The record is a 97-nucleotide RNA sequence from Pseudolysinimonas yzui, which matches "Bacterial small signal recognition particle RNA" in Rfam.
RNA sequence: GACGGCUCUCCGCGUGGCGCCAUCCAGGCCAACUCCCCCAGGACGGAAACGUAGCAAGGGUAACCGGGCUCUGACGGGUGCGCGGAGAGUCCUUCAG
Numbered sequence: 001g002a003c004g005g006c007u008c009u010c011c012g013c014g015u016g017g018c019g020c021c022a023u024c025c026a027g028g029c030c031a032a033c034u035c036c037c038c039c040a041g042g043a044c045g046g047a048a049a050c051g052u053a054g055c056a057a058g059g060g061u062a063a064c065c066g067g068g069c070u071c072u073g074a075c076g077g078g079u080g081c082g083c084g085g086a087g088a089g090u091c092c093u094u095c096a097g
Stems, first nucleotide, its partner, number of pairs: 004091011015078001018076002021073002024068002027065002035060003043052003

Background:
NCBI's taxonomy places the organism under Bacteria, Bacillati, Micrococcales, Microbacteriaceae, Pseudolysinimonas. About the family: The signal recognition particle (SRP) is a universally conserved ribonucleoprotein involved in the co-translational targeting of proteins to membranes. Rfam classes the family as a non-coding RNA gene.